t44 RNA: a 111-nucleotide RNA from Legionella spiritensis. The organism belongs to Legionella, within Bacteria. Pairs were carried over by alignment from the consensus structure, which was predicted with LocARNA. It is annotated as a small RNA. It scores 69 bits against the family's covariance model.

[Rfam]
Nucleotides: 111
Stems, first nucleotide, its partner, number of pairs: 023101008035092009048083004
Number, partner (000 for none) and nucleotide at each position: 001000a002000u003000a004000c005000g006000g007000c008000g009000c010000u011000u012000u013000u014000a015000a016000c017000g018000a019000c020000a021000c022000a023101c024100a025099c026098a027097u028096u029095u030094c031000g032000u033000c034000a035092c036091a037090u038089a039088u040087c041086g042085u043084a044000g045000g046000g047000u048083c049082c050081c051080u052000c053000u054000a055000u056000c057000a058000g059000g060000g061000c062000u063000u064000g065000u066000c067000a068000a069000c070000a071000a072000g073000u074000c075000c076000u077000g078000g079000a080051a081050g082049g083048g084043u085042a086041c087040g088039g089038u090037a091036u092035g093000g094030g095029a096028a097027a098026u099025g100024u101023g102000g103000a104000g105000g106000c107000u108000u109000a110000a111000c